[Rfam]
RNA sequence: GCCGACAGCGAGGGGACAGUCAGUCUCCUCGCAGGGCUCGGUACAACCGCCUCCGCAAGGUAUCGGGUUCCGUGAGCGGAGCGUGCUCACGCCGAGCCCACAGGGCCGGGAGCAUCCACCCGCGGGAGCAGUGACCGCGGGCCUCUGUACCCGGCCCACAUUUCGAUGCCC
Numbered sequence: 001g002c003c004g005a006c007a008g009c010g011a012g013g014g015g016a017c018a019g020u021c022a023g024u025c026u027c028c029u030c031g032c033a034g035g036g037c038u039c040g041g042u043a044c045a046a047c048c049g050c051c052u053c054c055g056c057a058a059g060g061u062a063u064c065g066g067g068u069u070c071c072g073u074g075a076g077c078g079g080a081g082c083g084u085g086c087u088c089a090c091g092c093c094g095a096g097c098c099c100a101c102a103g104g105g106c107c108g109g110g111a112g113c114a115u116c117c118a119c120c121c122g123c124g125g126g127a128g129c130a131g132u133g134a135c136c137g138c139g140g141g142c143c144u145c146u147g148u149a150c151c152c153g154g155c156c157c158a159c160a161u162u163u164c165g166a167u168g169c170c171c
Base pairs, nucleotide, nucleotide: 008032009031010030011029012028013027014026015025016024034099035098036097037096038095039094040093041092047079048078049077050076052067053066054065055064103157104156105155106154107153108152109151119141120140121139122138123137124136125135